[Rfam]
RNA sequence: CUAUAACUAUGAACUAUAAGGUUGCUAAUUAUAAAUAAGUUGUCAAUAUAAUUAGGUUUUUAUAGGGAGUUAUGUUCAACAAAAAGAACAA
Dot-bracket structure: .............(((.((((...(((((((((.............)))))))))..)))).))).......((((..........)))).
A member of the RNA family "S10-Clostridia ribosomal protein leader" from Mycoplasmopsis felis, 91 nucleotides long. The family's RNA type in Rfam is cis-regulatory leader.